[Rfam]
The record is a 76-nucleotide sequence from Alligator sinensis, which matches "Mammalian CPEB3 ribozyme" in Rfam. Rfam describes the family as follows. The mammalian CPEB3 ribozyme is a self cleaving RNA located in the second intron of the CPEB3 gene which belongs to a family of genes regulating messenger RNA polyadenylation. It scores 45 bits against the family's covariance model. The family's consensus secondary structure is taken from published work. The source organism's lineage runs through Eukaryota, Gnathostomata, Dipnotetrapodomorpha, Sauria and Alligator.
RNA sequence: AUUGCAAGUUAGAGGCCAAAGAAGCAGCUCUUACUGUGCGGCCACGUCAGAUUCCAAUGAGUCUGCAAAUUCUGCU
Numbered sequence: 001a002u003u004g005c006a007a008g009u010u011a012g013a014g015g016c017c018a019a020a021g022a023a024g025c026a027g028c029u030c031u032u033a034c035u036g037u038g039c040g041g042c043c044a045c046g047u048c049a050g051a052u053u054c055c056a057a058u059g060a061g062u063c064u065g066c067a068a069a070u071u072c073u074g075c076u
Stems, first nucleotide, its partner, number of pairs: 014043004020076002023073002026070001027039002048065007